[Rfam]
Shown here is a 43-nucleotide RNA from Sodalis ligni, a member of the family "nuoG RNA". Taxonomically the source falls in Sodalis (Bacteria, Pseudomonadati, Gammaproteobacteria, Bruguierivoracaceae). Rfam classes the family as a cis-regulatory element.
RNA sequence: GCAUUUUUGAUUAACGCCCGCGGUUUUACGGGCCACACGGAAG
Numbered sequence: 001g002c003a004u005u006u007u008u009g010a011u012u013a014a015c016g017c018c019c020g021c022g023g024u025u026u027u028a029c030g031g032g033c034c035a036c037a038c039g040g041a042a043g
Stems, first nucleotide, its partner, number of pairs: 016033005022027001